A member of the RNA family "mir-252 microRNA precursor family" from Medioppia subpectinata, 74 nucleotides long. A search with the family's covariance model found it, with a score of 64 bits. Lineage of the source: Eukaryota > Eumetazoa > Arthropoda > Sarcoptiformes > Medioppia. The family has 44 seed sequences and 422 matches in Rfam 15.1. Pairs were carried over by alignment from the consensus structure, which was predicted with RNAalifold. On this family, see Ruby et al., Cell 2006: "Large-scale sequencing reveals 21U-RNAs and additional microRNAs and endogenous siRNAs in C. elegans".
[Rfam]
RNA sequence: CCAGACUUCUAAGUAGUAGUGCCGCAGGUAAUCAUGAAUUGGACUUACCUGCACACGACUGCUUAACAGCCUGA
Numbered sequence: 001c002c003a004g005a006c007u008u009c010u011a012a013g014u015a016g017u018a019g020u021g022c023c024g025c026a027g028g029u030a031a032u033c034a035u036g037a038a039u040u041g042g043a044c045u046u047a048c049c050u051g052c053a054c055a056c057g058a059c060u061g062c063u064u065a066a067c068a069g070c071c072u073g074a
Stems, first nucleotide, its partner, number of pairs: 002073003006069002010065008019056001024052007